[Rfam]
RNA sequence: AGCGGGAUAGGUUAGCAUGGUUCGACCGACGGGCUCAUAACCCGUAGAUCGAUGGUUCAAAUCCAUCUCCCGCUA
Numbered sequence: 001a002g003c004g005g006g007a008u009a010g011g012u013u014a015g016c017a018u019g020g021u022u023c024g025a026c027c028g029a030c031g032g033g034c035u036c037a038u039a040a041c042c043c044g045u046a047g048a049u050c051g052a053u054g055g056u057u058c059a060a061a062u063c064c065a066u067c068u069c070c071c072g073c074u075a
Stems, first nucleotide, its partner, number of pairs: 001074007010027004029045005051067005

Shown here is a 75-nucleotide RNA sequence from a Candidatus Poseidoniales archaeon, a member of the family "tRNA".